[Rfam]
RNA sequence: GUGCUAAUGAUGAUAAAUUUAAUUAUCUUAGCGGAUUUCAGUGAGAUAAUAUAAAAUUGUCAAUGAUCUGAUUGUUACACACACUGAAGCCC
Dot-bracket structure: (.(((..................................................................................))).)